[Rfam]
RNA: Streptomyces-metH RNA
Organism: Streptomyces caatingaensis
RNA sequence: CCGUCCGGGGCGUGGGACGCCCCCUGCGCCGAACGGGUUGUACGGCUACGCUUGCCGCGUGCGUCCUCUCCGGGAGGGCGCAAAGCCGACAGCCGUCGCAACCACGGGAGCUCCCCAUG
Numbered sequence: 001c002c003g004u005c006c007g008g009g010g011c012g013u014g015g016g017a018c019g020c021c022c023c024c025u026g027c028g029c030c031g032a033a034c035g036g037g038u039u040g041u042a043c044g045g046c047u048a049c050g051c052u053u054g055c056c057g058c059g060u061g062c063g064u065c066c067u068c069u070c071c072g073g074g075a076g077g078g079c080g081c082a083a084a085g086c087c088g089a090c091a092g093c094c095g096u097c098g099c100a101a102c103c104a105c106g107g108g109a110g111c112u113c114c115c116c117a118u119g
Base pairs, nucleotide, nucleotide: 060082061081062080063079065077066076067075068074085099086098088097089096090095